Rfam assigns this 117-nucleotide sequence from Terrimesophilobacter mesophilus to the family "SAM (S-adenosyl methionine) riboswitch aptamer". Pairs were carried over by alignment from the consensus structure, which is taken from published work. Gene Ontology terms of the family: regulation of gene expression and S-adenosylmethionine metabolic process. Clan: SAM clan.

[Rfam]
Nucleotides: 117
Stems, first nucleotide, its partner, number of pairs: 001083004009039001011038004016033001021031002040070003045066003086106002088103006
Number, partner (000 for none) and nucleotide at each position: 001083g002082u003081u004080c005000c006000a007000g008000a009039g010000u011038u012037g013036c014035g015000u016033c017000c018000g019000u020000a021031g022030g023000u024000a025000c026000c027000u028000g029000g030022c031021c032000g033016g034000c035014c036013g037012c038011a039009c040070g041069a042068c043000a044000a045066c046065c047064c048000g049000a050000a051000u052000c053000c054000a055000u056000c057000g058000a059000u060000u061000c062000c063000c064047g065046g066045g067000u068042g069041u070040c071000c072000c073000a074000g075000g076000g077000g078000a079000a080004g081003a082002a083001c084000g085000g086106g087105c088103c089102c090101a091100c092099g093098a094000g095000a096000c097000c098093u099092c100091g101090u102089g103088g104000u105087g106086c107000a108000a109000g110000u111000g112000u113000c114000g115000a116000u117000g

About the family: SAM-IV is a mRNA element that regulates gene expression via direct sensing of S-adenosylmethionine (SAM or AdoMet). A search with the family's covariance model found it, with a score of 61 bits. Rfam 15.1 lists 2,360 matches to the family in 1,305 species.